The family of this 145-nucleotide sequence from Nezara viridula is "Wolbachia sRNA 46".
A reference for the family is Mayoral et al. (2014), "Wolbachia small noncoding RNAs and their role in cross-kingdom communications", Proc Natl Acad Sci U S A.
The family has 3 seed sequences and 237 matches in Rfam 15.1.
The source organism's lineage runs through Eukaryota, Heteroptera, Pentatomoidea, Pentatominae and Nezara.
[Rfam]
RNA sequence: UUAUGUUUUUUUACAUUCCAGGAUGGCAUUAAGGCAGAUAUCGCCAGUCUCCGGUCUUUAUCUUAUAUAUAUAUAUAUAUAUAUAUAAGAUAAAGACCGGAGACUGGCGAUAUCUGCCUUAAUGCCAUCCUGGAAUGUAAAAAAA
Numbered sequence: 001u002u003a004u005g006u007u008u009u010u011u012u013a014c015a016u017u018c019c020a021g022g023a024u025g026g027c028a029u030u031a032a033g034g035c036a037g038a039u040a041u042c043g044c045c046a047g048u049c050u051c052c053g054g055u056c057u058u059u060a061u062c063u064u065a066u067a068u069a070u071a072u073a074u075a076u077a078u079a080u081a082u083a084u085a086u087a088a089g090a091u092a093a094a095g096a097c098c099g100g101a102g103a104c105u106g107g108c109g110a111u112a113u114c115u116g117c118c119u120u121a122a123u124g125c126c127a128u129c130c131u132g133g134a135a136u137g138u139a140a141a142a143a144a145a
Stems, first nucleotide, its partner, number of pairs: 011140005024127031